Shown here is a 447-nucleotide RNA sequence from Candidatus Entotheonella gemina, a member of the family "Bacterial RNase P class A".
Rfam describes the family as follows. Ribonuclease P (RNase P) is a ubiquitous endoribonuclease, found in archaea, bacteria and eukarya as well as chloroplasts and mitochondria.
The family's RNA type in Rfam is ribozyme.
NCBI's taxonomy places the organism under Bacteria, Pseudomonadati, Candidatus Tectimicrobiota, Candidatus Entotheonellales, Candidatus Entotheonella.

[Rfam]
RNA sequence: AAAGGAGAUCAGAUGAUCGCGCCUUGCCGCCUGGCAAGGGGAGGAAAGUCCGGGCUCCGUAGAGCAGGGUGCUGGAUAACGUCCAGUGGGGGUGACCCUAAGGAAAGUGCCACAGAGAAUAGACCGCCAGAUGCCGGUGUGGAACGGCAGGCCGCUGCACGGGGUAUGCUGGUAAGGGUGAAACGGUGCGGUAAGAGCGCACCAGUCCCGGUGGUGACACCGGGAGCUCGGUAAACCCCACCCGGAGCAAGACCAAAUAGGGAGGCGAUGCUACGAUUUCUCUCACGUGGGAGACCAUGGGUGGGGAAAAGUGGGAUAAGGGUUGCUCGCCCGAUGCCUCCGGGUUAGGUCGCUUGAGGCAUACGGUAACGUAGGUCCUAGAGGAAUGAUCAUCGCCGCUUGCCCAGGCAAGCGGAACAGAACCCGGCUUAUCGAUCUGCUUUGUCC
Numbered sequence: 001a002a003a004g005g006a007g008a009u010c011a012g013a014u015g016a017u018c019g020c021g022c023c024u025u026g027c028c029g030c031c032u033g034g035c036a037a038g039g040g041g042a043g044g045a046a047a048g049u050c051c052g053g054g055c056u057c058c059g060u061a062g063a064g065c066a067g068g069g070u071g072c073u074g075g076a077u078a079a080c081g082u083c084c085a086g087u088g089g090g091g092g093u094g095a096c097c098c099u100a101a102g103g104a105a106a107g108u109g110c111c112a113c114a115g116a117g118a119a120u121a122g123a124c125c126g127c128c129a130g131a132u133g134c135c136g137g138u139g140u141g142g143a144a145c146g147g148c149a150g151g152c153c154g155c156u157g158c159a160c161g162g163g164g165u166a167u168g169c170u171g172g173u174a175a176g177g178g179u180g181a182a183a184c185g186g187u188g189c190g191g192u193a194a195g196a197g198c199g200c201a202c203c204a205g206u207c208c209c210g211g212u213g214g215u216g217a218c219a220c221c222g223g224g225a226g227c228u229c230g231g232u233a234a235a236c237c238c239c240a241c242c243c244g245g246a247g248c249a250a251g252a253c254c255a256a257a258u259a260g261g262g263a264g265g266c267g268a269u270g271c272u273a274c275g276a277u278u279u280c281u282c283u284c285a286c287g288u289g290g291g292a293g294a295c296c297a298u299g300g301g302u303g304g305g306g307a308a309a310a311g312u313g314g315g316a317u318a319a320g321g322g323u324u325g326c327u328c329g330c331c332c333g334a335u336g337c338c339u340c341c342g343g344g345u346u347a348g349g350u351c352g353c354u355u356g357a358g359g360c361a362u363a364c365g366g367u368a369a370c371g372u373a374g375g376u377c378c379u380a381g382a383g384g385a386a387u388g389a390u391c392a393u394c395g396c397c398g399c400u401u402g403c404c405c406a407g408g409c410a411a412g413c414g415g416a417a418c419a420g421a422a423c424c425c426g427g428c429u430u431a432u433c434g435a436u437c438u439g440c441u442u443u444g445u446c447c
Stems, first nucleotide, its partner, number of pairs: 001443004006438005011432001012394007020041001022039007046430003050427005055247004062328004067243005072086005087101001088099004102238002107236002109232003124177002126173005131167004185203006205227001206225008251351004261341006320332004358377003362373004